[Rfam]
RNA sequence: CUUACUGGGAGUUCCUUGGCAUUCUGUCCACCUCCUUGCUGAUCAUGCAGAGAGCCUCUCAAAUCUGUUGUGUUUUUGGAGGUGGGCAUACUGCCAAUGGAGCUGUGUAGG
Numbered sequence: 001c002u003u004a005c006u007g008g009g010a011g012u013u014c015c016u017u018g019g020c021a022u023u024c025u026g027u028c029c030a031c032c033u034c035c036u037u038g039c040u041g042a043u044c045a046u047g048c049a050g051a052g053a054g055c056c057u058c059u060c061a062a063a064u065c066u067g068u069u070g071u072g073u074u075u076u077u078g079g080a081g082g083u084g085g086g087c088a089u090a091c092u093g094c095c096a097a098u099g100g101a102g103c104u105g106u107g108u109a110g111g
Stems, first nucleotide, its partner, number of pairs: 013101001016097006025088011

The family of this 111-nucleotide sequence from Panicum virgatum is "MIR394 microRNA precursor family". On this family, see Jones-Rhoades and Bartel, Mol Cell 2004: "Computational identification of plant microRNAs and their targets, including a stress-induced miRNA". Taxonomically the source falls in Panicum sect. Hiantes (Eukaryota, Mesangiospermae, Poales, Panicum). Gene Ontology terms of the family: RISC complex and miRNA-mediated post-transcriptional gene silencing. It scores 85 bits against the family's covariance model.